[Rfam]
A member of the RNA family "HIF-1 alpha IRES" from Nannospalax galili, 281 nucleotides long.
A search with the family's covariance model found it, with a score of 194 bits.
The family's RNA type in Rfam is internal ribosome entry site.
This family represents the hypoxia-inducible factor 1-alpha internal ribosome entry site. HIF-1a is a subunit of the HIF-1 transcription factor, which induces transcription of several genes involved in the cellular response to hypoxia.
The family's consensus secondary structure was predicted with RNAfold.

RNA sequence: CUCGUCUGAGGGUACGCGAGGACCGUCCGCGCCGCCGUCGCGGGCAGUUGUAUCGGGCCAGGCCCUGACAAGCCAGCCGGAGAAGAGCAGGGGAGGCCGAGCCGGAGUGCGGCGAGCGUAGUCUGCUCCUCCCGCCUCGGCGGUCUCGGGGGACAUCCCGCCUCGCGCCCCGCGUCCGGACUUGCCCCUUUCUCUGCGCGCGUGGACCGAGCCAGCGCUUAGGCCGGAGAGAGCCCGGGGGCCGCCGGCCGGGAAGCCAUCGCGGGCAGCUCUUCGCCAUG
Numbered sequence: 001c002u003c004g005u006c007u008g009a010g011g012g013u014a015c016g017c018g019a020g021g022a023c024c025g026u027c028c029g030c031g032c033c034g035c036c037g038u039c040g041c042g043g044g045c046a047g048u049u050g051u052a053u054c055g056g057g058c059c060a061g062g063c064c065c066u067g068a069c070a071a072g073c074c075a076g077c078c079g080g081a082g083a084a085g086a087g088c089a090g091g092g093g094a095g096g097c098c099g100a101g102c103c104g105g106a107g108u109g110c111g112g113c114g115a116g117c118g119u120a121g122u123c124u125g126c127u128c129c130u131c132c133c134g135c136c137u138c139g140g141c142g143g144u145c146u147c148g149g150g151g152g153a154c155a156u157c158c159c160g161c162c163u164c165g166c167g168c169c170c171c172g173c174g175u176c177c178g179g180a181c182u183u184g185c186c187c188c189u190u191u192c193u194c195u196g197c198g199c200g201c202g203u204g205g206a207c208c209g210a211g212c213c214a215g216c217g218c219u220u221a222g223g224c225c226g227g228a229g230a231g232a233g234c235c236c237g238g239g240g241g242c243c244g245c246c247g248g249c250c251g252g253g254a255a256g257c258c259a260u261c262g263c264g265g266g267c268a269g270c271u272c273u274u275c276g277c278c279a280u281g
Base pairs, nucleotide, nucleotide: 002012003011016032017031018030020028021027034063035062036061085156087154129152130151131150132149133148182215183214184213186211188209193206194205195204225248227246229245231243